[Rfam]
RNA sequence: CUUACUGACGGGAAUGAAGUUCUCCCAAGGUUUUACCUAAACUGCUUAUAAAGCUGAUGACUUCUGUGAAUUA
Numbered sequence: 001c002u003u004a005c006u007g008a009c010g011g012g013a014a015u016g017a018a019g020u021u022c023u024c025c026c027a028a029g030g031u032u033u034u035a036c037c038u039a040a041a042c043u044g045c046u047u048a049u050a051a052a053g054c055u056g057a058u059g060a061c062u063u064c065u066g067u068g069a070a071u072u073a
Stems, first nucleotide, its partner, number of pairs: 010025003016064006044054003
RNA: Fluoride riboswitch aptamer (crcB RNA motif)